[Rfam]
The record is a 367-nucleotide RNA sequence, which matches "Bacterial RNase P class A" in Rfam. Ribonuclease P (RNase P) is a ubiquitous endoribonuclease, found in archaea, bacteria and eukarya as well as chloroplasts and mitochondria. Its best characterised activity is the generation of mature 5'-ends of tRNAs by cleaving the 5'-leader elements of precursor-tRNAs. Cellular RNase Ps are ribonucleoproteins. RNA from bacterial RNase Ps retains its catalytic activity in the absence of the protein subunit, i.e. it is a ribozyme. Rfam classes the family as a ribozyme.
RNA sequence: AGAGUUGGCCGAACAGUCGCCGAUCGGGGGUUAAAGCCUGAUGGGAGGAAAGUCCGGGCUCCAUAGGACGAGGUGCCAGGUAACGCCUGGGGGGCGUAAGCCUACGGAUAGUGCAGCAGAGAGUAGACCGCCUCAUCUGGCAACAACUGUUGCCCGAAGAGGUAAGGGUGAAAGGGUGCGGUAAGAGCGCACCGCGCGGGUGGUAACACUUCGUGGCAAGGUAAACCCCACCUGGAGCAAGGCCAAAUAGGAAUCCGUUGAUGUGGUCCGCAUUGGAUUCGGGUAGGCCGCUGGAGGCUGCUGGCGACGGUAGCCCUAGAUGAAUGACUGUUGAUAACAGAACCCGGCUUAUAGGCCGACUCUCAGU
Dot-bracket structure: ((((((((((((((((((.((.((((((........)))))).))....[[[.[[[[[((((...[[[[.((((((((((.....)))))(((((....)))).)((...((((.............(((((((.((..................)).)))))..)).......((((((.......))))))(((((((((....))).))))).)...))..)))))))))))))...((((......((((((...(((((.]]]]))))))))))).....))))......((((((((....))))))))..........)))))))..........]]]]]]]].).))))))))))....